Overview: The record is an 82-nucleotide RNA sequence from Myotis myotis, which matches "mir-9243 microRNA precursor family" in Rfam.
RNA sequence: CCAUGCACGAAUUUUGUGCACUGGGCCUCUAGUAUAAUAUAUUCUAUACUAGAGGCCCAGUGCACGAAAUUCGUGCAUGGGU
Numbered sequence: 001c002c003a004u005g006c007a008c009g010a011a012u013u014u015u016g017u018g019c020a021c022u023g024g025g026c027c028u029c030u031a032g033u034a035u036a037a038u039a040u041a042u043u044c045u046a047u048a049c050u051a052g053a054g055g056c057c058c059a060g061u062g063c064a065c066g067a068a069a070u071u072c073g074u075g076c077a078u079g080g081g082u
Base pairs, nucleotide, nucleotide: 001080002079004077005076006075007074008073009072010071011070013068014067015066017064018063019062020061021060022059023058024057025056026055027054028053029052030051031050032049033048034047035046
Rfam links the family to the GO terms RISC complex and miRNA-mediated post-transcriptional gene silencing.
NCBI's taxonomy places the organism under Eukaryota, Euteleostomi, Tetrapoda, Boreoeutheria, Myotis.